Rfam assigns this 85-nucleotide RNA sequence from Orthoflavivirus iunctionis to the family "Insect-specific Flavivirus exoribonuclease-resistant RNA element". On this family, see Villordo et al., PLoS Pathog 2015: "Dengue virus RNA structure specialization facilitates host adaptation". From the family's description: The exoribonuclease-resistant RNA elements (xrRNA) are described throughout all groups of flaviviruses. Usually, each virus harbors two xrRNAs, xrRNA1 and xrRNA2, in the beginning of the 3' UTR. The formation of these stem-loops, especially xrRNA1, is vital to ensure resistance against XRN1 activity. The Y-shaped stem-loop is also termed SL II and SL IV, respectively. NCBI's taxonomy places the organism under Viruses, Riboviria, Orthornavirae, Orthoflavivirus, Orthoflavivirus iunctionis.
RNA sequence: GGCAUGAAAAUGUCGGGCAUGACGAACCCGCUCCCCCGAGUCCCCUGGCAACAGGGUGUGUUCCCUUAUGGAGCACGUUCGAGCA
Number, nucleotide and partner (000 for none) at each position: 001g032002g031003c030004a000005u000006g000007a000008a000009a000010a000011u024012g023013u022014c021015g020016g000017g000018c000019a000020u015021g014022a013023c012024g011025a000026a000027c000028c000029c000030g003031c002032u001033c060034c000035c058036c000037c000038g000039a000040g000041u000042c000043c056044c055045c054046u053047g052048g000049c000050a000051a000052c047053a046054g045055g044056g043057u000058g035059u000060g033061u000062u000063c000064c000065c000066u000067u000068a000069u000070g000071g000072a000073g000074c000075a000076c000077g000078u000079u000080c000081g000082a000083g000084c000085a000